This 72-nucleotide sequence from Pieris macdunnoughi belongs to the Rfam family "mir-932 microRNA precursor family". Rfam links the family to the GO terms miRNA-mediated post-transcriptional gene silencing and RISC complex. It scores 74 bits against the family's covariance model. The organism belongs to Pieris, within Eukaryota.
RNA sequence: CAAGACCUCAAUUCCGUAGUGCAUUGCAGUGCAUCUUGCCCCCUGCAAGCAGUGCGGAAGUGAGGUUAAGAC
Numbered sequence: 001c002a003a004g005a006c007c008u009c010a011a012u013u014c015c016g017u018a019g020u021g022c023a024u025u026g027c028a029g030u031g032c033a034u035c036u037u038g039c040c041c042c043c044u045g046c047a048a049g050c051a052g053u054g055c056g057g058a059a060g061u062g063a064g065g066u067u068a069a070g071a072c
Base pairs, nucleotide, nucleotide: 006065007064008063009062010061013058014057015056016055017054020051021050022049024048025047026046027045028044
Dot-bracket structure: .....(((((..(((((..(((.(((((...............))))))))..)))))..))))).......